[Rfam]
RNA sequence: AGGAGUAGAUGGGUGCUGGUGUACCUCAUGGUCUUCAAAACCAGUGUGACGCCUUAAAGAGGUGUCGGGUGGAUUCGAUUCUCAAAUACUCCC
Numbered sequence: 001a002g003g004a005g006u007a008g009a010u011g012g013g014u015g016c017u018g019g020u021g022u023a024c025c026u027c028a029u030g031g032u033c034u035u036c037a038a039a040a041c042c043a044g045u046g047u048g049a050c051g052c053c054u055u056a057a058a059g060a061g062g063u064g065u066c067g068g069g070u071g072g073a074u075u076c077g078a079u080u081c082u083c084a085a086a087u088a089c090u091c092c093c
Stems, first nucleotide, its partner, number of pairs: 002092006011026006029043004047067005070084003
The family of this 93-nucleotide sequence from Calorimonas adulescens is "Selenocysteine transfer RNA".
The source organism's lineage runs through Bacteria, Clostridia, Thermoanaerobacterales, Thermoanaerobacteraceae and Calorimonas.